A member of the RNA family "Bacterial RNase P class A" from Candidatus Colimorpha enterica, 365 nucleotides long.
By type it is a ribozyme.
The base pairs follow the family's consensus structure, which is taken from published work.
Lineage of the source: Bacteria > Bacteroidota > Bacteroidia > Bacteroidales > Candidatus Colimorpha.
RNA sequence: CGACCGGGAGGUGCAUUCGCGCAGCAUCACGCCGUAAGGUAUUGCUGUGAGGAAAGUCCGGGCUCCGCAGAGCAGGGUAACGGAUAACGUCCGCCGAAGGCGACUUCAGGGAAAGUGCAACAGAAAUAAACCGCAUGAUUCGUCAUGUAAGGAUGGAAAGGCGAGGUAAGAGCUCACCGGCAUUCUGGUAACAGCGUGCAAAUGUAAACCCUACCCGGAGCAACUCCCCAUGGGAAUCCCGGAAACGGGCUGCCUGCUCGGCAGAUUCCCGGGGCGGCUGGAGCCGUGCGGUAACGUACGGUCGAGACAGAUGAGUGCAGGCGGCUUUGCCGCAACAGAACCCGGCUUAUUAUCCCGGUCGCAUU
Numbered sequence: 001c002g003a004c005c006g007g008g009a010g011g012u013g014c015a016u017u018c019g020c021g022c023a024g025c026a027u028c029a030c031g032c033c034g035u036a037a038g039g040u041a042u043u044g045c046u047g048u049g050a051g052g053a054a055a056g057u058c059c060g061g062g063c064u065c066c067g068c069a070g071a072g073c074a075g076g077g078u079a080a081c082g083g084a085u086a087a088c089g090u091c092c093g094c095c096g097a098a099g100g101c102g103a104c105u106u107c108a109g110g111g112a113a114a115g116u117g118c119a120a121c122a123g124a125a126a127u128a129a130a131c132c133g134c135a136u137g138a139u140u141c142g143u144c145a146u147g148u149a150a151g152g153a154u155g156g157a158a159a160g161g162c163g164a165g166g167u168a169a170g171a172g173c174u175c176a177c178c179g180g181c182a183u184u185c186u187g188g189u190a191a192c193a194g195c196g197u198g199c200a201a202a203u204g205u206a207a208a209c210c211c212u213a214c215c216c217g218g219a220g221c222a223a224c225u226c227c228c229c230a231u232g233g234g235a236a237u238c239c240c241g242g243a244a245a246c247g248g249g250c251u252g253c254c255u256g257c258u259c260g261g262c263a264g265a266u267u268c269c270c271g272g273g274g275c276g277g278c279u280g281g282a283g284c285c286g287u288g289c290g291g292u293a294a295c296g297u298a299c300g301g302u303c304g305a306g307a308c309a310g311a312u313g314a315g316u317g318c319a320g321g322c323g324g325c326u327u328u329g330c331c332g333c334a335a336c337a338g339a340a341c342c343c344g345g346c347u348u349a350u351u352a353u354c355c356c357g358g359u360c361g362c363a364u365u
Base pairs, nucleotide, nucleotide: 001361002360003359004358005357006356007355008354009353011350012319013318014317015316016315017314018313020049021048022047023046024045025044026043054348055347056346058345059344060343061342062341063220064219065218066217070259071258072257073256075216076215077214078213079212081093082092083091084090095109096107097106098105099104110211111210115209116208117205118204119203131152132151133148134147135146136145137144138143160178161177163175164174165173180199181198182197183196185194186193187192224276226274227273232270233269234268235267236266237265250264251263252262253261254260283302284301285300286299287298288297289296290295